[Rfam]
RNA sequence: UUUUCGCGUGAGGGAUAGAAGUGGAAAUCCUUUUUUGUUUAGAUGAAACCUUAUUUUUAGCCGAACGUUCUAACAAAAAAGAUUGCAACGGAUAGCCCGACCCUUG
Dot-bracket structure: ...........(((.((...((...((((..((((((((................................)))))))).))))...))...)).)))........
This 106-nucleotide RNA from Flavobacterium enshiense belongs to the Rfam family "Flavo-1 RNA". A search with the family's covariance model found it, with a score of 66 bits. The source organism's lineage runs through Bacteria, Pseudomonadati, Flavobacteriia, Flavobacteriaceae and Flavobacterium enshiense.